[Rfam]
RNA sequence: UGCAGUGAUGAAUCCACUCUGGAAUCUCGUUCGGCCGAAGGCUGCUGUGGAGGACUCGGAUUCUGAUGCUC
Numbered sequence: 001u002g003c004a005g006u007g008a009u010g011a012a013u014c015c016a017c018u019c020u021g022g023a024a025u026c027u028c029g030u031u032c033g034g035c036c037g038a039a040g041g042c043u044g045c046u047g048u049g050g051a052g053g054a055c056u057c058g059g060a061u062u063c064u065g066a067u068g069c070u071c
Stems, first nucleotide, its partner, number of pairs: 025053004032047004
This 71-nucleotide RNA from Crypturellus undulatus belongs to the Rfam family "Small nucleolar RNA SNORD30". Rfam classes the family as a C/D-box small nucleolar RNA. Clan: SNORD30 clan. The match comes from Rfam's covariance-model search (40 bits).